[Rfam]
Nucleotides: 106
Stems, first nucleotide, its partner, number of pairs: 001102007010093002012088006040070001043067002
Number, partner (000 for none) and nucleotide at each position: 001102g002101g003100u004099u005098g006097g007096a008000a009000g010093g011092c012088a013087g014086u015085g016084a017083g018000u019000u020000a021000u022000c023000u024000c025000a026000a027000u028000c029000g030000a031000u032000u033000a034000u035000u036000c037000a038000c039000a040070g041000u042000c043067a044066g045000c046000u047000g048000c049000a050000g051000a052000u053000c054000a055000a056000a057000c058000u059000c060000c061000u062000u063000g064000u065000u066044c067043u068000a069000u070040u071000c072000c073000u074000u075000c076000c077000u078000c079000c080000c081000u082000u083017c084016u085015c086014a087013c088012u089000a090000c091000a092011g093010c094000u095000u096007u097006u098005u099004a100003g101002u102001c103000u104000u105000a106000a